[Rfam]
RNA sequence: ACUUCCACAUAAAAGAACUGUGCUAAAAUUGCAGAAUCCAGGCUUGCUUGGUUUAUGCAAUAAUGCUAGCAGAGUAUUGCGUGGAAGGAGAGCAUUAUGCAAUGUGCCGGAACUGAGUCAUGGUUGAACCUCUUUCUUAAUGUUCGUUGACCGUUGUCUCAAGGCCCAGUGCAACACCC
Numbered sequence: 001a002c003u004u005c006c007a008c009a010u011a012a013a014a015g016a017a018c019u020g021u022g023c024u025a026a027a028a029u030u031g032c033a034g035a036a037u038c039c040a041g042g043c044u045u046g047c048u049u050g051g052u053u054u055a056u057g058c059a060a061u062a063a064u065g066c067u068a069g070c071a072g073a074g075u076a077u078u079g080c081g082u083g084g085a086a087g088g089a090g091a092g093c094a095u096u097a098u099g100c101a102a103u104g105u106g107c108c109g110g111a112a113c114u115g116a117g118u119c120a121u122g123g124u125u126g127a128a129c130c131u132c133u134u135u136c137u138u139a140a141u142g143u144u145c146g147u148u149g150a151c152c153g154u155u156g157u158c159u160c161a162a163g164g165c166c167c168a169g170u171g172c173a174a175c176a177c178c179c
Stems, first nucleotide, its partner, number of pairs: 018074002021071005028064004035054001038051005098173004103168002106165001121150001123148001125146004

The record is a 179-nucleotide RNA from Esox lucius, which matches "Small nucleolar RNA SNORA81" in Rfam. The match comes from Rfam's covariance-model search (102 bits). For this family Rfam cites "A novel experimental approach for systematic identification of box H/ACA snoRNAs from eukaryotes" (Gu et al., Nucleic Acids Res, 2005). Its family is annotated with RNA processing and nucleolus in the Gene Ontology.